Annotation:
The record is a 75-nucleotide RNA sequence from Streptomyces palmae, which matches "ASpks TB sRNA" in Rfam. Taxonomically the source falls in Streptomyces (Bacteria, Bacillati, Kitasatosporales, Streptomycetaceae). On this family, see Arnvig and Young, Mol Microbiol 2009: "Identification of small RNAs in Mycobacterium tuberculosis". Rfam classes the family as an antisense RNA.
RNA sequence: CUUCAGUGAUCCCAGCAGCAGUGGCCGGCCCUUGGGGCGGUCCUGGCCGUAGGUGGCGAGCAGUGCCUGGGCUUC
Number, nucleotide and partner (000 for none) at each position: 001c000002u000003u000004c000005a000006g000007u000008g000009a000010u000011c000012c000013c000014a000015g025016c024017a000018g000019c000020a000021g000022u000023g000024g016025c015026c000027g000028g000029c000030c000031c071032u070033u069034g000035g000036g000037g000038c065039g064040g000041u000042c000043c060044u059045g000046g000047c056048c055049g054050u000051a000052g000053g000054u049055g048056g047057c000058g000059a044060g043061c000062a000063g000064u039065g038066c000067c000068u000069g033070g032071g031072c000073u000074u000075c000